[Rfam]
RNA sequence: UGCGUAGCGCGUGUUUUAGGACGAUGUCGCGAAACUUGACCCCCUUCAGGCGGGCGGUGCGGAUAUACUGUGCCGUCAUGACUUCGGUCAUCGAGGCCCGUGUCAUCCGCGCGAUAUAUCCCAUCCCAUAAAGCGAGAUGGUGAGGACCGGCAGGAAGAAGUUCUCAAAAUUGGCAUUC
Numbered sequence: 001u002g003c004g005u006a007g008c009g010c011g012u013g014u015u016u017u018a019g020g021a022c023g024a025u026g027u028c029g030c031g032a033a034a035c036u037u038g039a040c041c042c043c044c045u046u047c048a049g050g051c052g053g054g055c056g057g058u059g060c061g062g063a064u065a066u067a068c069u070g071u072g073c074c075g076u077c078a079u080g081a082c083u084u085c086g087g088u089c090a091u092c093g094a095g096g097c098c099c100g101u102g103u104c105a106u107c108c109g110c111g112c113g114a115u116a117u118a119u120c121c122c123a124u125c126c127c128a129u130a131a132a133g134c135g136a137g138a139u140g141g142u143g144a145g146g147a148c149c150g151g152c153a154g155g156a157a158g159a160a161g162u163u164c165u166c167a168a169a170a171u172u173g174g175c176a177u178u179c
Base pairs, nucleotide, nucleotide: 005140006139008137010135011134012133014131015130016128019126020125021124029122031120040111042109046105048103050101051100052099053098054097055075056074057073058072059071060070061069062068082096083095084094085093086092145179146178147177149174151172154165155164156163157162
RNA: Ruegeria cis52 sRNA